[Rfam]
RNA sequence: GCGCUGGUUUAGCUCAGUGGUUAUGACAAAGCCUAGAUACCACGGUCCACAUCGGGUUGGAGUUACGAACCACGGGCGCUGUCCAGCGUACGC
Dot-bracket structure: .((((((....((((.((((....(......................................).....)))))))).....)))))).....

Rfam assigns this 93-nucleotide RNA from Salmo trutta to the family "Vault RNA". Taxonomically the source falls in Salmo (Eukaryota, Metazoa, Vertebrata, Salmonidae). By type it is a non-coding RNA gene.